[Rfam]
RNA sequence: UGUCUCCUCCACUUCUUGCAAAGGAAAUGGAUUUAAGCCCGCUCCCUUGAGCGGGUUUUUUUUU
Numbered sequence: 001u002g003u004c005u006c007c008u009c010c011a012c013u014u015c016u017u018g019c020a021a022a023g024g025a026a027a028u029g030g031a032u033u034u035a036a037g038c039c040c041g042c043u044c045c046c047u048u049g050a051g052c053g054g055g056u057u058u059u060u061u062u063u064u
Stems, first nucleotide, its partner, number of pairs: 008031004013026005036057008
RNA: Betaproteobacteria toxic small RNA